The record is a 130-nucleotide sequence from Takifugu flavidus, which matches "Small nucleolar RNA SNORA55" in Rfam. The match comes from Rfam's covariance-model search (55 bits). The family has 29 seed sequences and 1,476 matches in Rfam 15.1. Rfam classes the family as an H/ACA-box small nucleolar RNA. Rfam's curators write: ACA55 is a member of the H/ACA class of snoRNA that guide the sites of modification of uridines to pseudouridines.
RNA sequence: GCACCUCAGCAACCCAAUGGACUCUGUUAAGUGGUCAGUUUGGGUAACAGAUGGUGCUAUAGCGAUUCACUGUAAAUCCAGAUGGACCUCCUCUUCCCGUGGAGCCUGUCUCUACACCUUUGACACAUUA
Numbered sequence: 001g002c003a004c005c006u007c008a009g010c011a012a013c014c015c016a017a018u019g020g021a022c023u024c025u026g027u028u029a030a031g032u033g034g035u036c037a038g039u040u041u042g043g044g045u046a047a048c049a050g051a052u053g054g055u056g057c058u059a060u061a062g063c064g065a066u067u068c069a070c071u072g073u074a075a076a077u078c079c080a081g082a083u084g085g086a087c088c089u090c091c092u093c094u095u096c097c098c099g100u101g102g103a104g105c106c107u108g109u110c111u112c113u114a115c116a117c118c119u120u121u122g123a124c125a126c127a128u129u130a
Base pairs, nucleotide, nucleotide: 001057002056003055004054005053012045013044014043015042016041017040020036067123068122069121072118080111081110082109083108084107085106087104090102091101